Shown here is a 399-nucleotide RNA sequence from Synechococcus sp. RSCCF101, a member of the family "Bacterial RNase P class A". The family's RNA type in Rfam is ribozyme. NCBI's taxonomy places the organism under Bacteria, Cyanophyceae, Synechococcales, Synechococcaceae, Synechococcus. A reference for the family is Beauregard et al. (2013), "Identification and characterization of small RNAs in Yersinia pestis", RNA Biol.
[Rfam]
RNA sequence: AAAGCAGGCGAGGUGAUCGCGGCCGGCCUCCGCUCAGGGGUGCCGGCUGAGGAAAGUCCGGGCUCCCCGAUGGCCAGGCCUGCUGGGUAACGCCCAGUGCGGGUGACCGUGAGGAGAGUGCCACAGAAACACACCGCCGAUGGCCCCGGAGCCCGCCUCCGGCGGCACAGGCAAGGGUGCAAAGGUGCGGUAAGAGCGCACCAGCAGCAUCGAGAGGUGCUGGCUCGGUAAACCCCGGCCGGGAGCAAGGCCAAGGGGCAAUGGCUGGCCAUCGACCCAGCCCCGCCGCAACGCGCCGCUCGAGGCCGCCGGUAACGGCGGUCCCAGAUAGAUGAUCACCCCCGCGUCCGGCCGGUCCGGAGGCGGUGAACAGAACCCGGCUUACGUCCUGCUUUCCUC
Dot-bracket structure: ((((((((.(.(((((((.((((((((..............))))))))....[[[.[[[[[((((..........(((.(((((((.....)))))(((((....)))).)((...(((((...........(((((..((.(...................).))..)))..)).......((((((.......)))))).((((((((....))))))).)..)))..))))))))).))))...((((........................................).)))......((((((((....))))))))..........)))))))...................................]]]]]]]].)..))))))))....